Annotation:
This 78-nucleotide RNA from Sakesphorus luctuosus belongs to the Rfam family "Small nucleolar RNA SNORD66". Rfam 15.1 lists 1,346 matches to the family in 614 species. Its family is annotated with nucleolus and RNA processing in the Gene Ontology. It scores 75 bits against the family's covariance model. The base pairs follow the family's consensus structure, which was predicted with RNAalifold. Rfam's curators write: snoRNA HBII-142 is part of the C/D family of snoRNAs. It is the human orthologue of the mouse MBII-142 snoRNA and is predicted to guide 2'O-ribose methylation of small 18S rRNA at residue C1272.
RNA sequence: CUGCUUUGAUGAACUCUGCUUUGUGCUGUCGUGUCUGGGCCACUGAUGCUCUAUGAUGGUAAUGAGGAUCUGAGGCAG
Numbered sequence: 001c002u003g004c005u006u007u008g009a010u011g012a013a014c015u016c017u018g019c020u021u022u023g024u025g026c027u028g029u030c031g032u033g034u035c036u037g038g039g040c041c042a043c044u045g046a047u048g049c050u051c052u053a054u055g056a057u058g059g060u061a062a063u064g065a066g067g068a069u070c071u072g073a074g075g076c077a078g
Stems, first nucleotide, its partner, number of pairs: 001078004